[Rfam]
The record is a 138-nucleotide RNA from Cajanus cajan, which matches "small nucleolar RNA snoR134" in Rfam. On this family, see Chen and Wu, Nucleic Acids Res 2009: "Mining small RNA sequencing data: a new approach to identify small nucleolar RNAs in Arabidopsis". The match comes from Rfam's covariance-model search (93 bits). The base pairs follow the family's consensus structure, which was predicted with RNAalifold. It is annotated as an H/ACA-box small nucleolar RNA. Lineage of the source: Eukaryota > Spermatophyta > Gunneridae > fabids > Cajanus.
RNA sequence: CCGCACGGUGCCUCCCGGGCCUCUCUGAGUUCCCCAUGACGCGAAGGCCCCGAUGCACGUGCCAAAUCGCCGCCGUUCGUGUUGCAGUUUAGCCCCAAUUUUCCACGGCUGAUCUGUGUCAAAGUAACGGCCAAAUUC
Numbered sequence: 001c002c003g004c005a006c007g008g009u010g011c012c013u014c015c016c017g018g019g020c021c022u023c024u025c026u027g028a029g030u031u032c033c034c035c036a037u038g039a040c041g042c043g044a045a046g047g048c049c050c051c052g053a054u055g056c057a058c059g060u061g062c063c064a065a066a067u068c069g070c071c072g073c074c075g076u077u078c079g080u081g082u083u084g085c086a087g088u089u090u091a092g093c094c095c096c097a098a099u100u101u102u103c104c105a106c107g108g109c110u111g112a113u114c115u116g117u118g119u120c121a122a123a124g125u126a127a128c129g130g131c132c133a134a135a136u137u138c
Base pairs, nucleotide, nucleotide: 003062004061005060006059007058010056011055017050018049019048020047021046022044023043025041072131073130074129075128076127077126080121081120083118084117085116086115087114092109093108094107